A member of the RNA family "HDV ribozyme from F. prausnitzii" from Blautia luti, 74 nucleotides long. The source organism's lineage runs through Bacteria, Bacillati, Lachnospirales, Lachnospiraceae and Blautia. The literature on the family includes a 2009 paper in Science by Webb et al., "Widespread occurrence of self-cleaving ribozymes". A search with the family's covariance model found it, with a score of 84 bits. Its family is annotated with catalytic activity in the Gene Ontology.
[Rfam]
RNA sequence: GCUGCUCGAAUGAAUCACACACCUCUCCGUGGUGAGCAGCAGGCAACGGUCUUAUGACUGGCUGAGAUGUGAAG
Number, nucleotide and partner (000 for none) at each position: 001g040002c039003u038004g037005c036006u035007c034008g000009a000010a000011u000012g000013a000014a000015u000016c000017a000018c000019a000020c000021a033022c032023c031024u000025c000026u000027c000028c000029g000030u000031g023032g022033u021034g007035a006036g005037c004038a003039g002040c001041a000042g000043g000044c000045a000046a000047c060048g059049g058050u057051c056052u000053u000054a000055u000056g051057a050058c049059u048060g047061g000062c000063u000064g000065a000066g000067a000068u000069g000070u000071g000072a000073a000074g000